[Rfam]
This 200-nucleotide RNA sequence from Alphabaculovirus pavitrealis belongs to the Rfam family "Baculoviridae Nucleocapsid Assembly essential Element".
Taxonomically the source falls in Alphabaculovirus pavitrealis (Viruses, Naldaviricetes, Lefavirales, Alphabaculovirus).
RNA sequence: AAUUUUGAACGCCGUAUAUUGACUAAUAUACUACAGUCGGACGUUUGUGCCAAUCUAUAUACUACACUUUACCAAAAAUAUACUACACUAGGCAACAAAUAUACUACAACUCCGUUUCAAUAUAACUUCAUUGUCGAAAAACAGCCUAAAAAUAUUGAAGUAUAUGAGGUAAAUACACGUUUUAAAAACGCUACGAUUUU
Numbered sequence: 001a002a003u004u005u006u007g008a009a010c011g012c013c014g015u016a017u018a019u020u021g022a023c024u025a026a027u028a029u030a031c032u033a034c035a036g037u038c039g040g041a042c043g044u045u046u047g048u049g050c051c052a053a054u055c056u057a058u059a060u061a062c063u064a065c066a067c068u069u070u071a072c073c074a075a076a077a078a079u080a081u082a083c084u085a086c087a088c089u090a091g092g093c094a095a096c097a098a099a100u101a102u103a104c105u106a107c108a109a110c111u112c113c114g115u116u117u118c119a120a121u122a123u124a125a126c127u128u129c130a131u132u133g134u135c136g137a138a139a140a141a142c143a144g145c146c147u148a149a150a151a152a153u154a155u156u157g158a159a160g161u162a163u164a165u166g167a168g169g170u171a172a173a174u175a176c177a178c179g180u181u182u183u184a185a186a187a188a189c190g191c192u193a194c195g196a197u198u199u200u
Base pairs, nucleotide, nucleotide: 008192010190011189014031015030016029017028018027019026020025036054037053039051040050041048042047135179136178144170145169146168147167152163153162154161155160